[Rfam]
RNA: Small nucleolar RNA Z279/snoR105/snoR108
Organism: Lactuca sativa
RNA sequence: GGGAGGUGAUGAGUGGUCAUAGCUUGCAUUUAAAAAUGCAAGAUGGGUUGUCUGACUAAAUAUUUACGACAAUUAGGCAACUCUAAUCUUAUAACCAUCUGAUCCC
Number, nucleotide and partner (000 for none) at each position: 001g106002g105003g104004a103005g000006g000007u000008g000009a000010u000011g000012a000013g000014u097015g096016g095017u094018c000019a000020u000021a000022g000023c042024u041025u040026g039027c038028a000029u000030u000031u000032a000033a000034a000035a000036a000037u000038g027039c026040a025041a024042g023043a000044u000045g083046g082047g081048u000049u079050g078051u077052c076053u000054g000055a000056c000057u000058a000059a000060a000061u075062a074063u000064u072065u000066a000067c000068g000069a000070c000071a000072a064073u000074u062075a061076g052077g051078c050079a049080a000081c047082u046083c045084u000085a000086a000087u000088c000089u000090u000091a000092u000093a000094a017095c016096c015097a014098u000099c000100u000101g000102a000103u004104c003105c002106c001